[Rfam]
RNA: c-di-GMP-I-GGC riboswitch aptamer
RNA sequence: ACCGAUAACGGCAAACCUAUUGAAAGAUAGGGACGCAAAGUCAUAGGGCCUUCUCACUAAUGAAUGGCAGCCUGACCACCGAAG
Numbered sequence: 001a002c003c004g005a006u007a008a009c010g011g012c013a014a015a016c017c018u019a020u021u022g023a024a025a026g027a028u029a030g031g032g033a034c035g036c037a038a039a040g041u042c043a044u045a046g047g048g049c050c051u052u053c054u055c056a057c058u059a060a061u062g063a064a065u066g067g068c069a070g071c072c073u074g075a076c077c078a079c080c081g082a083a084g
Stems, first nucleotide, its partner, number of pairs: 003081002011036002016031006034070001040076003045073003048068003